[Rfam]
RNA: MIR6152 microRNA precursor family
RNA sequence: UAGACAGAUUUUUAUAUUCGACAGUAUUCACGGCGUGAAAUAGGGGAUUACAGUUAUUUUUAAACGGAAAGUGAAUCAAUUAACAUAAUAGACUCCU
Dot-bracket structure: ..((....((.((((.((.((..(.((((((..((((((((((..........)))))))...)))....)))))))..)))).)))).))..))..